[Rfam]
About this RNA:
Rfam assigns this 111-nucleotide RNA from Propionicimonas paludicola to the family "mraW RNA". The family's consensus secondary structure is taken from published work. The family's RNA type in Rfam is cis-regulatory element. The match comes from Rfam's covariance-model search (57 bits).
Nucleotides: 111
Base pairs, nucleotide, nucleotide: 011097012096013095014094016092018090019089021087022086023085024084025083026082027081028080029079030078031077034074038071040069041068042067043066044065045064046063047062048061049060
Number, partner (000 for none) and nucleotide at each position: 001000g002000a003000c004000g005000g006000u007000u008000c009000g010000c011097g012096c013095g014094u015000g016092g017000c018090g019089g020000c021087u022086u023085c024084a025083a026082u027081c028080c029079g030078c031077g032000u033000g034074c035000a036000g037000a038071c039000c040069c041068u042067c043066c044065u045064g046063g047062c048061g049060c050000a051000c052000c053000u054000u055000c056000c057000c058000c059000g060049g061048u062047g063046c064045c065044a066043g067042g068041a069040g070000c071038g072000g073000a074034g075000a076000c077031c078030g079029c080028g081027g082026a083025u084024u085023g086022a087021a088000a089019c090018c091000a092016c093000g094014a095013c096012g097011c098000a099000c100000g101000a102000a103000c104000c105000a106000g107000c108000a109000a110000c111000c